[Rfam]
RNA sequence: AUUAAAAAAACCCUGCAGAGCGAACUCUGCAGGGUCCUUCUAUAUCCUAAUGGACAGAAGGCAAAGGGAGAGGAGAAACCGGAGGAAGAACUUAUGGGGAAACGUAAGUCUUCUCCGCGG
Numbered sequence: 001a002u003u004a005a006a007a008a009a010a011c012c013c014u015g016c017a018g019a020g021c022g023a024a025c026u027c028u029g030c031a032g033g034g035u036c037c038u039u040c041u042a043u044a045u046c047c048u049a050a051u052g053g054a055c056a057g058a059a060g061g062c063a064a065a066g067g068g069a070g071a072g073g074a075g076a077a078a079c080c081g082g083a084g085g086a087a088g089a090a091c092u093u094a095u096g097g098g099g100a101a102a103c104g105u106a107a108g109u110c111u112u113c114u115c116c117g118c119g120g
Base pairs, nucleotide, nucleotide: 011034012033013032014031015030016029017028018027019026035068036067037066038065039064047053080117081116082115083114085113086112087111088110090109091108092107093106094105
A member of the RNA family "ylbH leader" from Bacillus coahuilensis, 120 nucleotides long. Its family is annotated with regulation of gene expression in the Gene Ontology. The base pairs follow the family's consensus structure.